[Rfam]
c-di-GMP-II-GAG riboswitch aptamer: an 85-nucleotide RNA. The family's consensus secondary structure is taken from published work. Clan: c-di-GMP_II riboswitch clan. Rfam links the family to the GO terms regulation of gene expression and cyclic-di-GMP binding. Rfam's curators put it in the seed alignment.

RNA sequence: ACCUCAGCGGGAAGCUCUGACACGCGGCCCACAUUCCGGCCGCCGGGACCGCGCCGAGCCACUGGCGAGACCGACCCGCCGAGGG
Numbered sequence: 001a002c003c004u005c006a007g008c009g010g011g012a013a014g015c016u017c018u019g020a021c022a023c024g025c026g027g028c029c030c031a032c033a034u035u036c037c038g039g040c041c042g043c044c045g046g047g048a049c050c051g052c053g054c055c056g057a058g059c060c061a062c063u064g065g066c067g068a069g070a071c072c073g074a075c076c077c078g079c080c081g082a083g084g085g
Stems, first nucleotide, its partner, number of pairs: 002084004007079005014059002023053005029047001038072002041067004